[Rfam]
RNA sequence: GGUUCCGAGGAGCGUUGCAGCGCCCCCAGCAUUGGCGGGGCGUGAGGCUCGGAGUCAUAAGCAACGACGCUCAUCCACU
Numbered sequence: 001g002g003u004u005c006c007g008a009g010g011a012g013c014g015u016u017g018c019a020g021c022g023c024c025c026c027c028a029g030c031a032u033u034g035g036c037g038g039g040g041c042g043u044g045a046g047g048c049u050c051g052g053a054g055u056c057a058u059a060a061g062c063a064a065c066g067a068c069g070c071u072c073a074u075c076c077a078c079u
Stems, first nucleotide, its partner, number of pairs: 002055007021042006
About this RNA:
A member of the RNA family "SAH (S-adenosyl-L-homocysteine) riboswitch aptamer" from Acidovorax delafieldii, 79 nucleotides long. A reference for the family is Wang et al. (2008), "Riboswitches that sense S-adenosylhomocysteine and activate genes involved in coenzyme recycling", Mol Cell. The family's consensus secondary structure is taken from published work. The source organism's lineage runs through Bacteria, Pseudomonadati, Pseudomonadota, Acidovorax and Acidovorax delafieldii. It scores 61 bits against the family's covariance model.